Nucleotides: 088
Base pairs, nucleotide, nucleotide: 003025004024005023006022007021008020027053028052029051030050031049032048060080061079062078063077064076065075066074067073
Number, partner (000 for none) and nucleotide at each position: 001000u002000c003025c004024c005023u006022g007021c008020u009000u010000u011000u012000c013000c014000u015000c016000c017000c018000u019000g020008a021007g022006c023005a024004g025003g026000u027053g028052c029051c030050u031049u032048g033000g034000c035000g036000u037000g038000a039000u040000g041000a042000c043000a044000g045000c046000g047000a048032c049031a050030a051029g052028g053027c054000u055000u056000g057000c058000c059000g060080c061079c062078c063077c064076a065075g066074c067073c068000c069000u070000c071000g072000u073067g074066g075065c076064u077063g078062g079061g080060g081000u082000u083000c084000u085000u086000u087000u088000u
The record is an 88-nucleotide RNA sequence from Pseudaquabacterium pictum, which matches "Burkholderia RNA 7 (anti-hemB)" in Rfam. Rfam links the family to the GO terms protein binding and bacterial biofilm matrix. The match comes from Rfam's covariance-model search (64 bits). This RNA motif was identified by computational search in b-proteobacteria Burkholderia. Co-purified with Hfq, expression confirmed by Northern blot. Taxonomically the source falls in Pseudaquabacterium (Bacteria, Pseudomonadati, Betaproteobacteria, Sphaerotilaceae).